The family of this 98-nucleotide RNA sequence from Ilyobacter polytropus is "Purine riboswitch aptamer". It scores 61 bits against the family's covariance model. Pairs were carried over by alignment from the consensus structure, which is taken from published work.
RNA sequence: AAAUUCGCAAUUUGUAACACUCGUAUAAUCCCGUAAUCUGGUCGGGAGUCUCUACAGCUAACCUUAAAUUAGCUACUAUGGGUGAAGUGACCGGACUU
Numbered sequence: 001a002a003a004u005u006c007g008c009a010a011u012u013u014g015u016a017a018c019a020c021u022c023g024u025a026u027a028a029u030c031c032c033g034u035a036a037u038c039u040g041g042u043c044g045g046g047a048g049u050c051u052c053u054a055c056a057g058c059u060a061a062c063c064u065u066a067a068a069u070u071a072g073c074u075a076c077u078a079u080g081g082g083u084g085a086a087g088u089g090a091c092c093g094g095a096c097u098u
Stems, first nucleotide, its partner, number of pairs: 018084008029047005056074006